Xanthomonadaceae sRNA sX13: a 116-nucleotide sequence from Pseudoxanthomonas helianthi.
RNA sequence: AAGGUCUGUCGCAGAUCCCUCCCAUCCCCUGGAGCGCGAUCUACUGGAACGGCGGCCCCUCCCCAGGCCACGUUCCCUGGCCCCGCCGACCUCCCCCUGGUCUGCGGGGCUUUUUA
Numbered sequence: 001a002a003g004g005u006c007u008g009u010c011g012c013a014g015a016u017c018c019c020u021c022c023c024a025u026c027c028c029c030u031g032g033a034g035c036g037c038g039a040u041c042u043a044c045u046g047g048a049a050c051g052g053c054g055g056c057c058c059c060u061c062c063c064c065a066g067g068c069c070a071c072g073u074u075c076c077c078u079g080g081c082c083c084c085g086c087c088g089a090c091c092u093c094c095c096c097c098u099g100g101u102c103u104g105c106g107g108g109g110c111u112u113u114u115u116a
Stems, first nucleotide, its partner, number of pairs: 004012001006011001013042005018036001019034004046076006054069004079111008088102004

It scores 99 bits against the family's covariance model. The base pairs follow the family's consensus structure, which was predicted with CMfinder. A reference for the family is Schmidtke et al. (2011), "Genome-wide transcriptome analysis of the plant pathogen Xanthomonas identifies sRNAs with putative virulence functions", Nucleic Acids Res.